Rfam assigns this 190-nucleotide RNA from Aneurinibacillus soli to the family "Lysine riboswitch aptamer".
RNA sequence: CGGUGGGGUAGAGGUCGCGGCUUUUAUGAGUAGGACAGACGAGAUGGGAGAACAUCGAAGACUCUGUGUGAAAGGAGAGGCUGCCGAAGUUUGCGCGGGAUUCUCCAGCGCGUGGACUGGGACUGUUUCCGAACAGGAGCAGAACUGUCACCUUUUGCUGUCCGGCAAGAGGUGGAGUGCUAUCUUCAUG
Numbered sequence: 001c002g003g004u005g006g007g008g009u010a011g012a013g014g015u016c017g018c019g020g021c022u023u024u025u026a027u028g029a030g031u032a033g034g035a036c037a038g039a040c041g042a043g044a045u046g047g048g049a050g051a052a053c054a055u056c057g058a059a060g061a062c063u064c065u066g067u068g069u070g071a072a073a074g075g076a077g078a079g080g081c082u083g084c085c086g087a088a089g090u091u092u093g094c095g096c097g098g099g100a101u102u103c104u105c106c107a108g109c110g111c112g113u114g115g116a117c118u119g120g121g122a123c124u125g126u127u128u129c130c131g132a133a134c135a136g137g138a139g140c141a142g143a144a145c146u147g148u149c150a151c152c153u154u155u156u157g158c159u160g161u162c163c164g165g166c167a168a169g170a171g172g173u174g175g176a177g178u179g180c181u182a183u184c185u186u187c188a189u190g
Stems, first nucleotide, its partner, number of pairs: 006185006017084009033069001035067005088118010119146002123142007148175010